[Rfam]
RNA sequence: UUUGACACCCAUUAAAAUAGUAAUUCCCCAUCUAGGAGCUAUUUUACUAUAUUCUGAAUUA
Numbered sequence: 001u002u003u004g005a006c007a008c009c010c011a012u013u014a015a016a017a018u019a020g021u022a023a024u025u026c027c028c029c030a031u032c033u034a035g036g037a038g039c040u041a042u043u044u045u046a047c048u049a050u051a052u053u054c055u056g057a058a059u060u061a
Base pairs, nucleotide, nucleotide: 017045019043020042021041022040024038025037026036027035
This 61-nucleotide sequence from Vitis vinifera belongs to the Rfam family "Plastid-psbN 5UTR RNA". Rfam's curators write: Plastid psbN is a non-coding RNA (ncRNA) recognised in plastids. Rfam classes the family as a cis-regulatory element.